A member of the RNA family "Eukaryotic large subunit ribosomal RNA" from Massarina eburnea, 492 nucleotides of a longer RNA.
NCBI's taxonomy places the organism under Eukaryota, saccharomyceta, Dothideomycetes, Massarina, Massarina eburnea.
Pairs were carried over by alignment from the consensus structure, which is taken from published work.
[Rfam]
Nucleotides: 492
Base pairs, nucleotide, nucleotide: 001431002430003429004428005427006426011024013022014021015020027167028166029165030164031163033161041120042119043118044117045116046115047114053108054106055105060102061101062100065097067095068094069093072092073091074090075089076088077087079085122148123147124146127143128142129141130140173197174196175195176194178192179191180190181189203212204211217394218393219392220391221390223388227384228383229382236381241377242376243375261355262354263353265352266351267350268349269348270347271346272345273344274343282339283338284337285336286335288312290310294306295305313317318333322331323330396420397419398418399417400416401415402414432487434484435483436482437481438480439479440478441477443476444475451471452470457466458465459464
Number, partner (000 for none) and nucleotide at each position: 001431c002430c003429u004428g005427c006426u007000a008000a009000a010000g011024u012000u013022u014021c015020c016000c017000u018000u019000a020015g021014g022013a023000u024011a025000g026000c027167a028166g029165u030164a031163a032000c033161g034000u035000u036000u037000u038000u039000a040000g041120u042119u043118u044117u045116a046115u047114a048000a049000g050000g051000u052000a053108a054106a055105g056000c057000a058000a059000a060102u061101a062100a063000u064000u065097a066000g067095a068094g069093g070000c071000c072092u073091a074090g075089g076088g077087g078000u079085u080000a081000a082000a083000a084000c085079a086000a087077c088076c089075u090074u091073u092072a093069u094068c095067u096000a097065u098000u099000c100062u101061u102060a103000a104000a105055c106054u107000u108053u109000a110000a111000a112000u113000a114047u115046a116045u117044a118043a119042g120041a121000a122148g123147u124146c125000c126000u127143u128142g129141u130140u131000g132000c133000u134000u135000a136000a137000u138000u139000a140130a141129a142128c143127g144000u145000a146124g147123a148122c149000a150000u151000u152000u153000a154000a155000a156000u157000g158000u159000a160000u161033u162000a163031u164030u165029a166028c167027u168000a169000g170000u171000a172000g173197g174196c175195u176194a177000u178192u179191u180190u181189u182000a183000g184000u185000a186000a187000g188000c189181a190180g191179a192178a193000c194176u195175a196174g197173c198000g199000a200000u201000g202000c203212a204211g205000g206000a207000u208000a209000a210000a211204c212203u213000a214000a215000a216000c217394g218393c219392a220391g221390g222000g223388u224000u225000a226000a227384g228383g229382u230000g231000c232000u233000a234000g235000a236381a237000u238000a239000c240000a241377c242376g243375c244000u245000u246000a247000u248000u249000a250000g251000a252000c253000a254000c255000u256000a257000u258000a259000a260000a261355a262354g263353g264000u265352g266351u267350u268349a269348g270347u271346u272345u273344a274343u275000c276000u277000a278000g279000a280000c281000a282339g283338u284337a285336g286335g287000a288312c289000a290310g291000u292000a293000g294306c295305u296000a297000u298000a299000g300000a301000a302000g303000u304000u305295a306294g307000a308000a309000u310290c311000c312288g313317c314000u315000a316000a317313g318333g319000a320000g321000u322331g323330u324000g325000u326000a327000a328000c329000a330323a331322c332000u333318u334000a335286c336285c337284u338283a339282c340000u341000a342000a343274a344273u345272a346271a347270a348269c349268u350267a351266g352265c353263c354262c355261u356000g357000a358000a359000a360000a361000u362000a363000g364000a365000u366000a367000g368000c369000g370000c371000u372000u373000a374000a375243g376242c377241g378000u379000g380000c381236u382229a383228c384227c385000u386000a387000u388223a389000c390221c391220c392219u393218g394217c395000c396420g397419c398418u399417a400416g401415g402414g403000c404000a405000g406000a407000c408000a409000u410000u411000a412000u413000a414402c415401c416400c417399u418398a419397g420396u421000a422000a423000g424000u425000a426006g427005g428004c429003a430002g431001g432487c433000g434484u435483a436482g437481a438480g439479g440478u441477c442000c443476g444475u445000a446000a447000c448000g449000a450000a451471g452470c453000c454000u455000u456000a457466g458465g459464g460000g461000u462000a463000a464459c465458c466457c467000u468000a469000g470452g471451u472000u473000a474000a475444a476443c477441g478440g479439c480438c481437u482436c483435u484434a485000g486000u487432g488000c489000a490000g491000a492000u